[Rfam]
RNA: FMN riboswitch aptamer (RFN element)
Organism: Microlunatus antarcticus
RNA sequence: CGCGUGUUCCGGGGUCGGUGAAAGUCCGAGCCGGCGGUGACAGUCCGCGACCCGUACGCAGCCCCACCCGGGGCCGCGUCCGGUUGAUGUGGUGAAACUCCACGACCGACGGUGAGAGUCCGGAUGGGAGGAUCACGCC
Numbered sequence: 001c002g003c004g005u006g007u008u009c010c011g012g013g014g015u016c017g018g019u020g021a022a023a024g025u026c027c028g029a030g031c032c033g034g035c036g037g038u039g040a041c042a043g044u045c046c047g048c049g050a051c052c053c054g055u056a057c058g059c060a061g062c063c064c065c066a067c068c069c070g071g072g073g074c075c076g077c078g079u080c081c082g083g084u085u086g087a088u089g090u091g092g093u094g095a096a097a098c099u100c101c102a103c104g105a106c107c108g109a110c111g112g113u114g115a116g117a118g119u120c121c122g123g124a125u126g127g128g129a130g131g132a133u134c135a136c137g138c139c
Stems, first nucleotide, its partner, number of pairs: 003137004008132003016028003030119002032108002034048004043106002052083002088104005110122003